The family of this 102-nucleotide RNA from Digitaria exilis is "Small nucleolar RNA snR60/Z15/Z230/Z193/J17". A reference for the family is Qu et al. (2001), "Identification of 10 novel snoRNA gene clusters from Arabidopsis thaliana", Nucleic Acids Res. The match comes from Rfam's covariance-model search (80 bits).
RNA sequence: UAUGGUCGGAUGAUGAGUAAAAAUGCAUAGUUCAGAUGAUCUAACCCUAGUGGUUGUGAUUACUUUGAAUAAAUAGUCUUUCGCUCCUAACUGACGACCACA
Numbered sequence: 001u002a003u004g005g006u007c008g009g010a011u012g013a014u015g016a017g018u019a020a021a022a023a024u025g026c027a028u029a030g031u032u033c034a035g036a037u038g039a040u041c042u043a044a045c046c047c048u049a050g051u052g053g054u055u056g057u058g059a060u061u062a063c064u065u066u067g068a069a070u071a072a073a074u075a076g077u078c079u080u081u082c083g084c085u086c087c088u089a090a091c092u093g094a095c096g097a098c099c100a101c102a
Stems, first nucleotide, its partner, number of pairs: 004099005